[Rfam]
RNA sequence: UUGAAGGCGUGGAGACUGAAGUCCUCUGUAUAUCCACAGAACAGGUAUGGCACAGGCAGCGGCAGUGUAGCUUUUCCACUGUCCCACCAAUGUGCCUCAGUCCUAGCCUAGGGGGAACACGUUUAGGAUAAGAGGGCUGUUCAGUCUCCAUGCCCUUCAAUCCUUGGCUACU
Numbered sequence: 001u002u003g004a005a006g007g008c009g010u011g012g013a014g015a016c017u018g019a020a021g022u023c024c025u026c027u028g029u030a031u032a033u034c035c036a037c038a039g040a041a042c043a044g045g046u047a048u049g050g051c052a053c054a055g056g057c058a059g060c061g062g063c064a065g066u067g068u069a070g071c072u073u074u075u076c077c078a079c080u081g082u083c084c085c086a087c088c089a090a091u092g093u094g095c096c097u098c099a100g101u102c103c104u105a106g107c108c109u110a111g112g113g114g115g116a117a118c119a120c121g122u123u124u125a126g127g128a129u130a131a132g133a134g135g136g137c138u139g140u141u142c143a144g145u146c147u148c149c150a151u152g153c154c155c156u157u158c159a160a161u162c163c164u165u166g167g168c169u170a171c172u
Stems, first nucleotide, its partner, number of pairs: 002159003006154002010150011023136002026134002029132001031130004038104002041101001047097001050095005061083005108126005114120001
This 172-nucleotide RNA belongs to the Rfam family "TUC338". Rfam classes the family as a cis-regulatory element. The family's consensus secondary structure was predicted with WAR.